[Rfam]
RNA sequence: GUGCUUUACUUUCCUGAUUAAUUUGCUGUUAUUUCAUUUAAUUGCAAAUAUUUGUUCAUGUGAAGCUAGAAUAAAUGUUCCCCUCGCUAUCCGGUGCGUCUCGUAAUGGUUCAUUUGGACGUUGGGAAACUACAUUU
Numbered sequence: 001g002u003g004c005u006u007u008a009c010u011u012u013c014c015u016g017a018u019u020a021a022u023u024u025g026c027u028g029u030u031a032u033u034u035c036a037u038u039u040a041a042u043u044g045c046a047a048a049u050a051u052u053u054g055u056u057c058a059u060g061u062g063a064a065g066c067u068a069g070a071a072u073a074a075a076u077g078u079u080c081c082c083c084u085c086g087c088u089a090u091c092c093g094g095u096g097c098g099u100c101u102c103g104u105a106a107u108g109g110u111u112c113a114u115u116u117g118g119a120c121g122u123u124g125g126g127a128a129a130c131u132a133c134a135u136u137u
Base pairs, nucleotide, nucleotide: 002068003066004065005064008061009060011058016053017052019050020049022048023047024046025045026044028042029041077130078129079128081126082125083124085121086120090119091118092117093116094115099109100108
This 137-nucleotide sequence from Daucus carota belongs to the Rfam family "Small nucleolar RNA snoR136". A search with the family's covariance model found it, with a score of 64 bits. Pairs were carried over by alignment from the consensus structure, which was predicted with mfold. Rfam links the family to the GO terms RNA processing and nucleolus. The organism belongs to Daucus carota, within Eukaryota.